Shown here is a 107-nucleotide sequence from Deinococcus sp. RL, a member of the family "SAM riboswitch aptamer (S box leader)". Rfam describes the family as follows. The SAM riboswitch is found upstream of a number of genes which code for proteins involved in methionine or cysteine biosynthesis in Gram-positive bacteria.
[Rfam]
RNA sequence: ACCCUAUCCAGAGCGCCUGAGAGACCUGGCUCGUUGACGGCGCGGCAACCGGACCCCAUCACGUCACGGUGCCAAGGCCAGCCCGCCCGCGAGGUCAACGAUGACCU
Numbered sequence: 001a002c003c004c005u006a007u008c009c010a011g012a013g014c015g016c017c018u019g020a021g022a023g024a025c026c027u028g029g030c031u032c033g034u035u036g037a038c039g040g041c042g043c044g045g046c047a048a049c050c051g052g053a054c055c056c057c058a059u060c061a062c063g064u065c066a067c068g069g070u071g072c073c074a075a076g077g078c079c080a081g082c083c084c085g086c087c088c089g090c091g092a093g094g095u096c097a098a099c100g101a102u103g104a105c106c107u
Base pairs, nucleotide, nucleotide: 001107005103006102007101008100013043014042015041016040017039021032022031023030026081027080028079029078044073045072046071047070049069050068051065052064077099
Its family is annotated with regulation of gene expression in the Gene Ontology. Taxonomically the source falls in Deinococcus (Bacteria, Deinococcota, Deinococci, Deinococcaceae). The family's consensus secondary structure is taken from published work.